The family of this 184-nucleotide RNA from Auraticoccus cholistanensis is "Actinobacteria sRNA Ms_IGR-5". Pairs were carried over by alignment from the consensus structure. Taxonomically the source falls in Auraticoccus (Bacteria, Bacillati, Actinomycetota, Actinomycetes). For this family Rfam cites "Identification of small RNAs in Mycobacterium smegmatis using heterologous Hfq" (Li et al., RNA, 2013). The match comes from Rfam's covariance-model search (83 bits).
RNA sequence: ACACGGAAGGGAGGUGGUUCGAUUCAUGAGUGACUGUCGGACAUGUGAGGUGGCGGCCGGCUGAUUCCGGCCCGAGCCGGCUCGGAGUCGGCCAAUCCACUGUCGUCACCCAGACCCGCGAGCGCCGGAGUCCACCGGCCGCCUCCUGCCCAGCAGGACGUGACCCGCUCGCGGGUCUGUCCUU
Number, nucleotide and partner (000 for none) at each position: 001a000002c000003a000004c000005g000006g000007a000008a000009g000010g000011g000012a000013g058014g057015u056016g000017g054018u053019u000020c000021g000022a000023u000024u000025c000026a000027u000028g000029a000030g000031u000032g000033a000034c000035u000036g000037u000038c000039g000040g000041a000042c000043a000044u000045g000046u000047g000048a000049g000050g000051u000052g000053g018054c017055g000056g015057c014058c013059g093060g092061c091062u090063g089064a088065u087066u000067c085068c084069g083070g082071c000072c080073c079074g078075a000076g000077c000078c074079g073080g072081c000082u070083c069084g068085g067086a000087g065088u064089c063090g062091g061092c060093c059094a000095a000096u000097c000098c000099a000100c000101u000102g000103u000104c000105g000106u000107c000108a000109c000110c000111c000112a178113g177114a176115c175116c174117c173118g172119c171120g170121a169122g168123c167124g166125c000126c000127g000128g000129a000130g000131u000132c000133c000134a000135c000136c000137g000138g000139c000140c000141g000142c000143c000144u000145c000146c000147u000148g000149c000150c000151c000152a000153g000154c000155a000156g000157g000158a000159c000160g000161u000162g000163a000164c000165c000166c124167g123168c122169u121170c120171g119172c118173g117174g116175g115176u114177c113178u112179g000180u000181c000182c000183u000184u000